[Rfam]
c-di-AMP riboswitch aptamer (ydaO/yuaA leader): a 145-nucleotide RNA from Actinomadura viridis.
The source organism's lineage runs through Bacteria, Bacillati, Actinomycetes, Thermomonosporaceae and Actinomadura.
Gene Ontology terms of the family: cyclic-di-AMP binding and regulation of gene expression.
Rfam's curators write: This family represents a conserved RNA structure found upstream of the ydaO and yuaA genes in Bacillus subtilis and related genes in other bacteria.
RNA sequence: GGCGGCCAUACGCCUAAUCCCACCACCCAAUGUGGGAGCCGGGGACCCACGGUCUUCGGGGUGAAUCCGCGGCGUCCCGCCGCGGUAGGGCCUUCUCCUGGCCCGAACCCGUCAGCUAACCCGGUCGGCGUCAAGGAGAGGAGAG
Dot-bracket structure: ..........((((...((((((........))))))((((((....(.........)(((.....((((...........))))..((((.........))))...))).........)))))).))))...............